[Rfam]
RNA: RT-2 RNA
RNA sequence: UAAAGCGAGACAAAGUAGAUUUUGUCGGUUUACGGCAUUUUGAAAUCAGUGCAAGUGGAUGGAAGGAGAGGAUAUACCGUCAGCCAAUGGGAAACCGGGCUGUAAAUAAGUAUCUGGAUGACAUCAGGCGGACGCUGCUUGCAUGGUACAGGAUUGGUAGAGAGCCUGUAUUUCAUGCCUGUUAUGCUAUGCGGUUAGGGCUACCAGCAAAGCUGCUUAUAUAGGGCUGCCGUACCAGAUACCAUUUUAAUAAUAGGUUAUU
Numbered sequence: 001u002a003a004a005g006c007g008a009g010a011c012a013a014a015g016u017a018g019a020u021u022u023u024g025u026c027g028g029u030u031u032a033c034g035g036c037a038u039u040u041u042g043a044a045a046u047c048a049g050u051g052c053a054a055g056u057g058g059a060u061g062g063a064a065g066g067a068g069a070g071g072a073u074a075u076a077c078c079g080u081c082a083g084c085c086a087a088u089g090g091g092a093a094a095c096c097g098g099g100c101u102g103u104a105a106a107u108a109a110g111u112a113u114c115u116g117g118a119u120g121a122c123a124u125c126a127g128g129c130g131g132a133c134g135c136u137g138c139u140u141g142c143a144u145g146g147u148a149c150a151g152g153a154u155u156g157g158u159a160g161a162g163a164g165c166c167u168g169u170a171u172u173u174c175a176u177g178c179c180u181g182u183u184a185u186g187c188u189a190u191g192c193g194g195u196u197a198g199g200g201c202u203a204c205c206a207g208c209a210a211a212g213c214u215g216c217u218u219a220u221a222u223a224g225g226g227c228u229g230c231c232g233u234a235c236c237a238g239a240u241a242c243c244a245u246u247u248u249a250a251u252a253a254u255a256g257g258u259u260a261u262u
Stems, first nucleotide, its partner, number of pairs: 005052003019040001081102004110242008119234001120187001122186003125181005134142002145172007191233005197217001199208001